[Rfam]
Rfam assigns this 106-nucleotide RNA sequence from Cloeon dipterum to the family "Mitochondrial DNA control region secondary structure A". The base pairs follow the family's consensus structure, which is taken from published work. NCBI's taxonomy places the organism under Eukaryota, Ecdysozoa, Hexapoda, Pisciforma, Cloeon.

RNA sequence: AUCAUGCAUUAUUAUGUAAAAAUGCGCGUUGUGCAUGCAUUAUGUACACAUGCAUGUAUAUUUAUGCAUUAUGUGCAUUAUUGCAUGUGCAUAUGCAUUAUUUGUA
Numbered sequence: 001a002u003c004a005u006g007c008a009u010u011a012u013u014a015u016g017u018a019a020a021a022a023u024g025c026g027c028g029u030u031g032u033g034c035a036u037g038c039a040u041u042a043u044g045u046a047c048a049c050a051u052g053c054a055u056g057u058a059u060a061u062u063u064a065u066g067c068a069u070u071a072u073g074u075g076c077a078u079u080a081u082u083g084c085a086u087g088u089g090c091a092u093a094u095g096c097a098u099u100a101u102u103u104g105u106a
Stems, first nucleotide, its partner, number of pairs: 005097005012089001016084004022036006037059001041054001043052001064078005